[Rfam]
The record is a 92-nucleotide RNA from Polypedilum vanderplanki, which matches "mir-283 microRNA precursor family" in Rfam.
NCBI's taxonomy places the organism under Eukaryota, Bilateria, Nematocera, Chironominae, Polypedilum.
The family has 11 seed sequences and 98 matches in Rfam 15.1.
The family is grouped with related families in Rfam's "mir-216 clan".
RNA sequence: UAUGCGCCCGAAAAUGAAAUAUCAGCUGGUAAUUCUGGGUAAUUUGAGUAAUAAAGUCCCAGAAUUUCAACUGGUAUCCAUUUUCCGACGCA
Numbered sequence: 001u002a003u004g005c006g007c008c009c010g011a012a013a014a015u016g017a018a019a020u021a022u023c024a025g026c027u028g029g030u031a032a033u034u035c036u037g038g039g040u041a042a043u044u045u046g047a048g049u050a051a052u053a054a055a056g057u058c059c060c061a062g063a064a065u066u067u068c069a070a071c072u073g074g075u076a077u078c079c080a081u082u083u084u085c086c087g088a089c090g091c092a
Base pairs, nucleotide, nucleotide: 011084012083013082014081015080016079019077020076021075022074023073024072025071027069028068029067032065033064034063035062036061037060038059039058